[Rfam]
RNA sequence: GGUAUGUAUUUUAACCCCACGAUUAGCCCCGGAAUUAAUCGUGUUGAAAUAAAUAUAAAAA
Numbered sequence: 001g002g003u004a005u006g007u008a009u010u011u012u013a014a015c016c017c018c019a020c021g022a023u024u025a026g027c028c029c030c031g032g033a034a035u036u037a038a039u040c041g042u043g044u045u046g047a048a049a050u051a052a053a054u055a056u057a058a059a060a061a
Stems, first nucleotide, its partner, number of pairs: 007057003010053004018043009

This 61-nucleotide sequence from Thermaerobacillus caldiproteolyticus belongs to the Rfam family "Ribosomal protein L13 leader". Its family is annotated with regulation of gene expression in the Gene Ontology. Pairs were carried over by alignment from the consensus structure, which was predicted with CMfinder. By type it is a cis-regulatory leader. Rfam's curators write: This family is a putative r-protein leader autoregulatory structure found in B. subtilis and other low-GC Gram-positive bacteria. It is located in the 5' untranslated regions of mRNAs encoding the L13-S9 (rplM-rpsI) ribosomal protein operon.